Rfam assigns this 95-nucleotide sequence from Oenococcus kitaharae to the family "Purine riboswitch aptamer". From the family's description: Riboswitches are metabolite binding domains within certain messenger RNAs that serve as precision sensors for their corresponding targets. The organism belongs to Oenococcus kitaharae, within Bacteria.
RNA sequence: AAGAUAAAUAACAAUCAAGCAGGUAUAUCGUCGGAUAAUGGCUGACAGUUUCUACCCAGCACCUAUGCUGGACUAUCUGUGGAUGUAGCUCUUUU
Numbered sequence: 001a002a003g004a005u006a007a008a009u010a011a012c013a014a015u016c017a018a019g020c021a022g023g024u025a026u027a028u029c030g031u032c033g034g035a036u037a038a039u040g041g042c043u044g045a046c047a048g049u050u051u052c053u054a055c056c057c058a059g060c061a062c063c064u065a066u067g068c069u070g071g072a073c074u075a076u077c078u079g080u081g082g083a084u085g086u087a088g089c090u091c092u093u094u095u
Stems, first nucleotide, its partner, number of pairs: 019080007030046005056071006